[Rfam]
RNA: Group II catalytic intron D1-D4-4
RNA sequence: UAGUUGGUGAAAGUCCAACCGAGGUAAGAGCCAAGUCGCCUCGUAGCUGACAGGCAACUGGUGGAGAGAUCCUAAGGUUGAAGCCCUGUGACAAAGUAUCCCGUAAGGGAGCGAGCAAAUCAGCGGACCGUAACAUAA
Numbered sequence: 001u002a003g004u005u006g007g008u009g010a011a012a013g014u015c016c017a018a019c020c021g022a023g024g025u026a027a028g029a030g031c032c033a034a035g036u037c038g039c040c041u042c043g044u045a046g047c048u049g050a051c052a053g054g055c056a057a058c059u060g061g062u063g064g065a066g067a068g069a070u071c072c073u074a075a076g077g078u079u080g081a082a083g084c085c086c087u088g089u090g091a092c093a094a095a096g097u098a099u100c101c102c103g104u105a106a107g108g109g110a111g112c113g114a115g116c117a118a119a120u121c122a123g124c125g126g127a128c129c130g131u132a133a134c135a136u137a138a
Stems, first nucleotide, its partner, number of pairs: 020043005050089005055080005064071002096112002099109003115131002